[Rfam]
RNA sequence: AUGAAGUUUUUAGGAAAACAGCAGCAAUGCUUACCGAAGGAGUAAAACUCUCAGGUGUCCGGCAGCGGACGGGGACUAUAAA
Dot-bracket structure: ......(((.(((......((((....)))).(((((..(((.....))))).)))...................))).)))
Numbered sequence: 001a002u003g004a005a006g007u008u009u010u011u012a013g014g015a016a017a018a019c020a021g022c023a024g025c026a027a028u029g030c031u032u033a034c035c036g037a038a039g040g041a042g043u044a045a046a047a048c049u050c051u052c053a054g055g056u057g058u059c060c061g062g063c064a065g066c067g068g069a070c071g072g073g074g075a076c077u078a079u080a081a082a
Stems, first nucleotide, its partner, number of pairs: 007082003011078003020031004033056003036052002040050003